[Rfam]
RNA: Bacterial small signal recognition particle RNA
RNA sequence: UUCCUAGACCUAUGCAAUGGGGUGUUAGGACAACGCUUCAGGGUGGAAACACAGCAGAGUAGCUUGAUAUCUUGUGUGCCUUAGUCAUCUGGGGGAAG
Number, nucleotide and partner (000 for none) at each position: 001u000002u000003c000004c092005u091006a090007g089008a088009c000010c084011u083012a082013u000014g080015c076016a000017a075018u074019g073020g072021g071022g070023u000024g068025u067026u066027a065028g064029g063030a000031c000032a000033a000034c000035g060036c059037u058038u057039c000040a000041g000042g000043g052044u051045g050046g000047a000048a000049a000050c045051a044052c043053a000054g000055c000056a000057g038058a037059g036060u035061a000062g000063c029064u028065u027066g026067a025068u024069a000070u022071c021072u020073u019074g018075u017076g015077u000078g000079c000080c014081u000082u012083a011084g010085u000086c000087a000088u008089c007090u006091g005092g004093g000094g000095g000096a000097a000098g000